[Rfam]
RNA sequence: GGCGAUGAAUGUCAGUGGUUGGCCCCGGCCCGCUGACUGGCAACCCUGCUCUGCGGUGGGGUGCCCCGGGGAUAAGCCAGGCGGCGUGAGCAGCACGCCGCAAGCGCGGACA
Numbered sequence: 001g002g003c004g005a006u007g008a009a010u011g012u013c014a015g016u017g018g019u020u021g022g023c024c025c026c027g028g029c030c031c032g033c034u035g036a037c038u039g040g041c042a043a044c045c046c047u048g049c050u051c052u053g054c055g056g057u058g059g060g061g062u063g064c065c066c067c068g069g070g071g072a073u074a075a076g077c078c079a080g081g082c083g084g085c086g087u088g089a090g091c092a093g094c095a096c097g098c099c100g101c102a103a104g105c106g107c108g109g110a111c112a
Base pairs, nucleotide, nucleotide: 001078002077003076009038011037012036013035014034015033016032021030022029039065040064041063044061045060046059049055081101082100083099084098085097086096087095088094
SAM (S-adenosyl methionine) riboswitch aptamer: a 112-nucleotide sequence from Streptacidiphilus jiangxiensis. On this family, see Weinberg et al., RNA 2008: "The aptamer core of SAM-IV riboswitches mimics the ligand-binding site of SAM-I riboswitches". SAM-IV is a mRNA element that regulates gene expression via direct sensing of S-adenosylmethionine (SAM or AdoMet). SAM-IV riboswitches share conserved nucleotide positions with the previously described SAM-I riboswitches sequence analysis and molecular recognition experiments suggest that SAM-I and SAM-IV riboswitches share similar ligand binding sites, but have different scaffolds.